[Rfam]
A member of the RNA family "Bacterial large subunit ribosomal RNA" from Rufibacter ruber, 344 nucleotides of a longer RNA.
RNA sequence: CGAGUGAAUCACGGCCAAGGAACUCGGCAAAAUGGCCCUGUAACUUCGGGAGAAGGGGCGCUUCCUUGCAGCGAUGCAAGAAGCCGCAGUGAAAAGGCCCAGGCGACUGUUUAACAAAAACACAUGGCUAUGCGAAAUCGAGAGAUGAGGUAUAUGGCCUGACACCUGCCCGGUGCCGGAAGGUUAAGAGGGGAUGUCAGCCGCAAGGCGAAGCAUUGAAUCGAAGCCCCGGUAAACGGCGGCCGUAACUAUAACGGUCCUAAGGUAGCGAAAUUCCUUGUCGGGUAAGUUCCGACCUGCACGAAUGGUGUAACGAUCUGGGCGCUGUCUCAGCCGUGAGCUCG
Dot-bracket structure: ((((....(((((((..(((..............(((((....(....).....)))))(((((.(((((....))))))))))(...).......(((((((((..(((.........)))...((((((((...(((....)))...)..)))))))...((((.(((..(((((((..(((...((...(((((..((......))...)))))...))...))))))))..)))))((((((.......))))))(...).....(.........((((((.....))))))).........))))...)).)))))))....)))..))))))).))))